[Rfam]
RNA sequence: ACACCUGUUUUAUUGCUGUUAUUAGGUUGAGGCCGAGAUUAGCCUUGUUCGAUUUUUUACACAAUAGCCCUGUAAAAAAUUGAACACAGCCCGCUGAGCGCUGCGCCAGGCAAGGCGUUGCAGGGGCCUGCGAUGCCCUGAAACGCCCCAAAACUGGCCAUCAAGCCCCAUUUCAGGGCAA
Numbered sequence: 001a002c003a004c005c006u007g008u009u010u011u012a013u014u015g016c017u018g019u020u021a022u023u024a025g026g027u028u029g030a031g032g033c034c035g036a037g038a039u040u041a042g043c044c045u046u047g048u049u050c051g052a053u054u055u056u057u058u059a060c061a062c063a064a065u066a067g068c069c070c071u072g073u074a075a076a077a078a079a080u081u082g083a084a085c086a087c088a089g090c091c092c093g094c095u096g097a098g099c100g101c102u103g104c105g106c107c108a109g110g111c112a113a114g115g116c117g118u119u120g121c122a123g124g125g126g127c128c129u130g131c132g133a134u135g136c137c138c139u140g141a142a143a144c145g146c147c148c149c150a151a152a153a154c155u156g157g158c159c160a161u162c163a164a165g166c167c168c169c170a171u172u173u174c175a176g177g178g179c180a181a
Stems, first nucleotide, its partner, number of pairs: 025101001028098001035094001037092001042090002045086001047085003053079008165179002168176001
Rfam assigns this 181-nucleotide sequence from Pseudomonas sp. 8AS to the family "Pseudomonas sRNA P1". Lineage of the source: Bacteria > Pseudomonadati > Pseudomonadota > Pseudomonadaceae > Pseudomonas. Rfam describes the family as follows. This small RNA (sRNA) was computationally identified in the genome of the opportunistic pathogen Pseudomonas aeruginosa and its expression verified by northern blot analysis. There appears to be two related copies of P1 sRNA in the P.aeruginosa PA01 genome and both copies appear to be located upstream of predicted glutamine synthetase genes.